[Rfam]
RNA: Selenocysteine transfer RNA
RNA sequence: GGGGCUGGAAGGGUAGCUGGUGCGCUCCUCGGUCUUCAAAACCGCGUGAGAGGCGCGUGUCGUCUCUGGUGGGUUCGAUUCCCACACGGUCCC
Numbered sequence: 001g002g003g004g005c006u007g008g009a010a011g012g013g014u015a016g017c018u019g020g021u022g023c024g025c026u027c028c029u030c031g032g033u034c035u036u037c038a039a040a041a042c043c044g045c046g047u048g049a050g051a052g053g054c055g056c057g058u059g060u061c062g063u064c065u066c067u068g069g070u071g072g073g074u075u076c077g078a079u080u081c082c083c084a085c086a087c088g089g090u091c092c093c
Stems, first nucleotide, its partner, number of pairs: 001093007012027002016023002028046001030044004049067005070084004